Annotation: DnaX ribosomal frameshifting element: a 62-nucleotide RNA sequence from Pantoea ananatis. Pairs were carried over by alignment from the consensus structure, which is taken from published work. By type it is a frameshift element. On this family, see Larsen et al., J Mol Biol 1997: "Structural probing and mutagenic analysis of the stem-loop required for Escherichia coli dnaX ribosomal frameshifting: programmed efficiency of 50%".
RNA sequence: GCCAGGGAGCAAACAAAGCAAAAAAGAGUGAGCCGGCAGCGCCAGGUGCGCGGCCGGCCAAC
Numbered sequence: 001g002c003c004a005g006g007g008a009g010c011a012a013a014c015a016a017a018g019c020a021a022a023a024a025a026g027a028g029u030g031a032g033c034c035g036g037c038a039g040c041g042c043c044a045g046g047u048g049c050g051c052g053g054c055c056g057g058c059c060a061a062c
Base pairs, nucleotide, nucleotide: 032058033057034056035055036054037053039051040050